[Rfam]
The family of this 64-nucleotide sequence is "pemK RNA". By type it is a cis-regulatory element.
RNA sequence: ACAAUGGUACUUCCGUAAAACGCGGCCCGGCCAUAGUGAAGGCGGGGAGAUGAAACUUCUAUGA
Number, nucleotide and partner (000 for none) at each position: 001a000002c000003a000004a000005u000006g000007g000008u000009a000010c000011u000012u061013c025014c024015g023016u022017a000018a000019a000020a000021c000022g016023c015024g014025g013026c047027c046028c045029g000030g043031c042032c041033a000034u000035a000036g000037u000038g000039a000040a000041g032042g031043c030044g000045g028046g027047g026048a060049g059050a058051u000052g000053a000054a000055a000056c000057u000058u050059c049060u048061a012062u000063g000064a000